[Rfam]
RNA sequence: AUAGCUUGAUUGUUGGCUAUACGGUUUAAGUGGGCCCCGGUAAUCUUUCUGACUCGCCAAAGUUAAAGAAGAUUAUCGGGGUUUUUGCUU
Number, nucleotide and partner (000 for none) at each position: 001a020002u019003a018004g017005c016006u000007u000008g000009a000010u000011u000012g000013u000014u000015g000016g005017c004018u003019a002020u001021a000022c000023g000024g000025u000026u000027u000028a090029a089030g088031u087032g084033g083034g082035c081036c080037c079038c078039g077040g076041u075042a074043a073044u072045c071046u070047u069048u000049c000050u000051g000052a000053c000054u000055c000056g000057c000058c000059a000060a000061a000062g000063u000064u000065a000066a000067a000068g000069a047070a046071g045072a044073u043074u042075a041076u040077c039078g038079g037080g036081g035082u034083u033084u032085u000086u000087g031088c030089u029090u028

The family of this 90-nucleotide RNA from Shigella flexneri is "CopA-like RNA". It is annotated as an antisense RNA. The literature on the family includes a 2001 paper in J Mol Biol by Nordgren et al., "Real time kinetic studies of the interaction between folded antisense and target RNAs using surface plasmon resonance". In several groups of bacterial plasmids, antisense RNAs regulate copy number through inhibition of replication initiator protein synthesis. These RNAs are characterised by a long hairpin structure interrupted by several unpaired residues or bulged loops. In plasmid R1, the inhibitory complex between the antisense RNA (CopA) and its target mRNA (CopT) is characterised by a four-way junction structure and a side-by-side helical alignment. Rfam's curators put it in the seed alignment. Lineage of the source: Bacteria > Pseudomonadati > Pseudomonadota > Enterobacteriaceae > Shigella flexneri.